The record is a 107-nucleotide RNA sequence from Pectobacterium atrosepticum, which matches "Yersinia sRNA 224" in Rfam. A reference for the family is Righetti et al. (2016), "Temperature-responsive in vitro RNA structurome of Yersinia pseudotuberculosis", Proc Natl Acad Sci U S A. Pairs were carried over by alignment from the consensus structure. A search with the family's covariance model found it, with a score of 75 bits. Rfam classes the family as a small RNA. Its family is annotated with response to temperature stimulus in the Gene Ontology.
RNA sequence: GAGCGUAUGGGCUGAGUUUGCUGAGCGGUGAUAAUGGGUAGAUCGUAAAGACGCUGCAAGUACGUCCAUGUAAGCUCGAGCCGCGCCAUCCUUGGCGCGGACGCUUU
Numbered sequence: 001g002a003g004c005g006u007a008u009g010g011g012c013u014g015a016g017u018u019u020g021c022u023g024a025g026c027g028g029u030g031a032u033a034a035u036g037g038g039u040a041g042a043u044c045g046u047a048a049a050g051a052c053g054c055u056g057c058a059a060g061u062a063c064g065u066c067c068a069u070g071u072a073a074g075c076u077c078g079a080g081c082c083g084c085g086c087c088a089u090c091c092u093u094g095g096c097g098c099g100g101a102c103g104c105u106u107u
Base pairs, nucleotide, nucleotide: 014106015105016104017103019027020026021025030077031076041066042065043064045063046062047061052056081100082099083098084097085096086095087094088093